[Rfam]
This 126-nucleotide sequence from Oryzicola mucosus belongs to the Rfam family "Alphaproteobacterial ar14". A reference for the family is del Val et al. (2012), "A survey of sRNA families in alpha-proteobacteria", RNA Biol. The family's RNA type in Rfam is small RNA. Its family is annotated with biological process involved in symbiotic interaction in the Gene Ontology. From the family's description: Smr14C2 was renamed NfeR1 (Nodule Formation Efficiency RNA) highly expressed in salt stress and during the symbiotic interaction on legume roots. The base pairs follow the family's consensus structure.
RNA sequence: GAAUUUCGCCGCACGUCUUCCUCCUCCCUGACACGCGGUGAAUACGGUCAGCAGAACACCUCCUCCCGUUCGCUGGCCGGCCACAUACGACACCCGCCGGACCUCCUCCCCCGGCGGGUGUUGUUU
Numbered sequence: 001g002a003a004u005u006u007c008g009c010c011g012c013a014c015g016u017c018u019u020c021c022u023c024c025u026c027c028c029u030g031a032c033a034c035g036c037g038g039u040g041a042a043u044a045c046g047g048u049c050a051g052c053a054g055a056a057c058a059c060c061u062c063c064u065c066c067c068g069u070u071c072g073c074u075g076g077c078c079g080g081c082c083a084c085a086u087a088c089g090a091c092a093c094c095c096g097c098c099g100g101a102c103c104u105c106c107u108c109c110c111c112c113g114g115c116g117g118g119u120g121u122u123g124u125u126u
Stems, first nucleotide, its partner, number of pairs: 007040003011036002015032003046078007054070002090121011